Source information: A member of the RNA family "Plastid-clpP 5UTR RNA" from Ziziphus jujuba, 69 nucleotides long. The family has 343 seed sequences and 2,105 matches in Rfam 15.1. The source organism's lineage runs through Eukaryota, Viridiplantae, Streptophytina, fabids and Ziziphus. From the family's description: Plastid clpP is a non-coding RNA (ncRNA) recognised in plastids. It was found in the prime untranslated region (5UTR) of a protease complex subunit (clpP) in plastids, suggesting a posible cis-regulatory function. The family's consensus secondary structure was predicted with LocARNA.
[Rfam]
RNA sequence: AAUUUUGUUUGUUGGAAAAAAAAGAAGCAAAUCUAUUCUACACCCGAUAAGUACCAGUACGCAAUGGUA
Numbered sequence: 001a002a003u004u005u006u007g008u009u010u011g012u013u014g015g016a017a018a019a020a021a022a023a024g025a026a027g028c029a030a031a032u033c034u035a036u037u038c039u040a041c042a043c044c045c046g047a048u049a050a051g052u053a054c055c056a057g058u059a060c061g062c063a064a065u066g067g068u069a
Base pairs, nucleotide, nucleotide: 003022004021006019008017009016010015044067045066051060052059053058